The family of this 58-nucleotide RNA is "chrB-b RNA".

[Rfam]
RNA sequence: CGGGGAUAGCCGGCAGACUCCCCGCCCUCCAAGACGCGCCGUCGCGUCCAAGUUCUGC
Numbered sequence: 001c002g003g004g005g006a007u008a009g010c011c012g013g014c015a016g017a018c019u020c021c022c023c024g025c026c027c028u029c030c031a032a033g034a035c036g037c038g039c040c041g042u043c044g045c046g047u048c049c050a051a052g053u054u055c056u057g058c
Base pairs, nucleotide, nucleotide: 001024002023003022004021005020006019013058014057015056016055017054033048034047035046036045037044
Rfam's curators put it in the seed alignment.